[Rfam]
RNA sequence: AGACAGGUUGUCGUGAUAGUAAUUCAAUUUAGUACGAGAGGAACUAUUGAAUCAGAUAAUUGGUCUUGGCGCUUGGUUGAAAAGCUAUUGGCGCGGAGCUACCAUCUGUUGGAUUAUGGCUGAAAGCCUCUCAAGCCAGAAGCCAUGCUAGAAGCGACGAUGAAAUCUUUCUCGGUUUCGAAAUUUUUUUUUUCUUUUCAGUCUAAAAUUAAUUAGAACCAUAUUGGUUUUUCUUUUUCUUAGUUUUUGUACUAGCGAAAAAAAAGAGCCUUAUGUGUGAUCUUUUUACAAAAUUUAUUAAAAAAAGUAAUCGGUAGGUUUUUUUUUAUUUUUCUCUUUCUCCCGUUUACAGUAAAAAAAGGAACAUGGUUUCCAUUGAAGCGAGCCGAGUAAAAGCCAGAUCACUUGUAUACGACUUGGUUUUAUGAGAGACAAGGUAUUGUAAGGAGUAGAGUAGUCUUUUUUUCUUUUUCUUCUUUUUAGAAGGAAAAAAAAGUGCUGCGAUCUCUUGAGAUUUAGCCUUGAACUAGAAAUGGAA
Dot-bracket structure: ......((((((((..((((.(((((((.................)))))))(((((...(((.....((((.(((((....)))))...))))....)))..))))).(((....(((((............)))))....))).))))...))))))))......(((..(........................................................................................................................................................................................................................)..))).....((..(..(.......)..)..........((...(((.((.....((((.(..(((((.......................................)))))..)))))....))....)))....))....))....

Eukaryotic large subunit ribosomal RNA: a 538-nucleotide part of an RNA from Cryptomonas paramaecium. Its Rfam clan is "LSU clan". The sequence is in the family's curated seed alignment.